[Rfam]
RNA sequence: GCUCUGGACUGUUAUAUAAACGAAAGUAGGAGUUCCAAAAUCGGACAGGAUGAACGAGCAA
Numbered sequence: 001g002c003u004c005u006g007g008a009c010u011g012u013u014a015u016a017u018a019a020a021c022g023a024a025a026g027u028a029g030g031a032g033u034u035c036c037a038a039a040a041u042c043g044g045a046c047a048g049g050a051u052g053a054a055c056g057a058g059c060a061a
Stems, first nucleotide, its partner, number of pairs: 001059004009048005021043003029036002